[Rfam]
RNA sequence: UUACUGGACGCUUUAGCUAUUGAACUGUUUUGUCACUCUCAGUUAAAUUGUUUAAAUUGUCAAAUUGUUCUCUGUCAGAGACAGACAGAGAGUGACAAAACAGUUCAAUAGCUAAAGCGUCCAGUAAG
Numbered sequence: 001u002u003a004c005u006g007g008a009c010g011c012u013u014u015a016g017c018u019a020u021u022g023a024a025c026u027g028u029u030u031u032g033u034c035a036c037u038c039u040c041a042g043u044u045a046a047a048u049u050g051u052u053u054a055a056a057u058u059g060u061c062a063a064a065u066u067g068u069u070c071u072c073u074g075u076c077a078g079a080g081a082c083a084g085a086c087a088g089a090g091a092g093u094g095a096c097a098a099a100a101c102a103g104u105u106c107a108a109u110a111g112c113u114a115a116a117g118c119g120u121c122c123a124g125u126a127a128g
Stems, first nucleotide, its partner, number of pairs: 001127006011117018029089006
Dot-bracket structure: ((((((....((((((((((((((((((((((((.................................................))))))..........))))))))))))))))))....)))))).
The family of this 128-nucleotide RNA sequence from Plutella xylostella is "mir-8517 microRNA precursor family". The source organism's lineage runs through Eukaryota, Panarthropoda, Altocrustacea, Neolepidoptera and Plutella. The base pairs follow the family's consensus structure, which was predicted with RNAalifold.